[Rfam]
RNA: DUF3800-VI RNA
RNA sequence: CGGUUGAGAGGGCUGCAUUGCGGUCCGUUGAACGAAAGUUCACUCGGCUG
Numbered sequence: 001c002g003g004u005u006g007a008g009a010g011g012g013c014u015g016c017a018u019u020g021c022g023g024u025c026c027g028u029u030g031a032a033c034g035a036a037a038g039u040u041c042a043c044u045c046g047g048c049u050g
Stems, first nucleotide, its partner, number of pairs: 001050008010026005029042005